[Rfam]
RNA sequence: AUACAUUCCAAAUCAGUAAAAACUCAAAAAACAGCAAAGUAAGAUCAAAGUAUAGUAUUUGUUCUUAUUAAGUUGAUAUGCUGGUUAUCGAUCCACUCGAUAUUAAUGUUAUUUUUAAUGGGGAAAGGCUUGUCAUAGCUUUUGCUAUUGGGGUCUUUGAGAGUCGUGUUGGUGUUGCAUUACAACCUUGGUACAUGACUUGCCCCUC
Numbered sequence: 001a002u003a004c005a006u007u008c009c010a011a012a013u014c015a016g017u018a019a020a021a022a023c024u025c026a027a028a029a030a031a032c033a034g035c036a037a038a039g040u041a042a043g044a045u046c047a048a049a050g051u052a053u054a055g056u057a058u059u060u061g062u063u064c065u066u067a068u069u070a071a072g073u074u075g076a077u078a079u080g081c082u083g084g085u086u087a088u089c090g091a092u093c094c095a096c097u098c099g100a101u102a103u104u105a106a107u108g109u110u111a112u113u114u115u116u117a118a119u120g121g122g123g124a125a126a127g128g129c130u131u132g133u134c135a136u137a138g139c140u141u142u143u144g145c146u147a148u149u150g151g152g153g154u155c156u157u158u159g160a161g162a163g164u165c166g167u168g169u170u171g172g173u174g175u176u177g178c179a180u181u182a183c184a185a186c187c188u189u190g191g192u193a194c195a196u197g198a199c200u201u202g203c204c205c206c207u208c
Base pairs, nucleotide, nucleotide: 007044008043066078067077068076069075070074080096083093084092085091086090124158125157126156127155128154129153130152131151136147137146138145139144161201162200163199164198165197166196171187172186173185
A member of the RNA family "U2 spliceosomal RNA" from Cynara cardunculus, 208 nucleotides long. The family's consensus secondary structure is taken from published work. Rfam links the family to the GO terms U2 snRNP, mRNA branch site recognition and pre-mRNA branch point binding. By type it is a spliceosomal small nuclear RNA.